[Rfam]
Nucleotides: 083
Base pairs, nucleotide, nucleotide: 010074016068017067018066019065020064021063022062023061024060026058027057028056029055030054031053032052033051034050035049
Number, partner (000 for none) and nucleotide at each position: 001000c002000a003000g004000a005000g006000c007000a008000a009000u010074c011000c012000u013000u014000g015000a016068a017067g018066c019065u020064c021063a022062g023061g024060a025000g026058g027057g028056a029055u030054a031053g032052c033051g034050c035049c036000u037000c038000g039000a040000a041000u042000c043000a044000a045000c046000u047000a048000u049035g050034g051033c052032g053031c054030u055029a056028u057027c058026u059000a060024u061023c062022c063021u064020g065019a066018g067017c068016u069000c070000c071000a072000u073000g074010g075000u076000u077000u078000u079000c080000u081000c082000u083000u

Shown here is an 83-nucleotide sequence from Zizania palustris, a member of the family "MIR390 microRNA precursor family". The family's consensus secondary structure was predicted with WAR. The source organism's lineage runs through Eukaryota, Euphyllophyta, commelinids, Poales and Zizania. Rfam links the family to the GO terms miRNA-mediated post-transcriptional gene silencing and RISC complex. A search with the family's covariance model found it, with a score of 80 bits.